[Rfam]
RNA sequence: CCGGGCCGACGCAGACGCCCGACUCACAAAAGGCAUUUCGCCCAAGUGCUGC
Numbered sequence: 001c002c003g004g005g006c007c008g009a010c011g012c013a014g015a016c017g018c019c020c021g022a023c024u025c026a027c028a029a030a031a032g033g034c035a036u037u038u039c040g041c042c043c044a045a046g047u048g049c050u051g052c
Stems, first nucleotide, its partner, number of pairs: 002021005011052004032042003

This 52-nucleotide RNA belongs to the Rfam family "chrB-b RNA". By type it is a cis-regulatory element.